The family of this 86-nucleotide RNA sequence from Peribacillus deserti is "c-di-GMP-I riboswitch aptamer".
The family's consensus secondary structure is taken from published work.
RNA sequence: AUAUCCUAUUGGCAACCUAUUUGAAAAGAUAAGGACGCAAAGCUAAAGGGGCUAAAGUAAACUAACUAUGCCAGCCAGCUGCUAAA
Number, nucleotide and partner (000 for none) at each position: 001a000002u000003a000004u000005c000006c000007u000008a000009u000010u000011g000012g038013c037014a000015a000016c000017c033018u032019a030020u029021u028022u027023g000024a000025a000026a000027a022028g021029a020030u019031a000032a018033g017034g000035a000036c000037g013038c012039a000040a000041a080042g079043c078044u077045a000046a000047a000048g076049g075050g072051g071052c070053u000054a000055a000056a000057g066058u065059a000060a000061a000062c000063u000064a000065a058066c057067u000068a000069u000070g052071c051072c050073a000074g000075c049076c048077a044078g043079c042080u041081g000082c000083u000084a000085a000086a000
NCBI's taxonomy places the organism under Bacteria, Bacillati, Bacillota, Bacilli, Peribacillus. A search with the family's covariance model found it, with a score of 62 bits.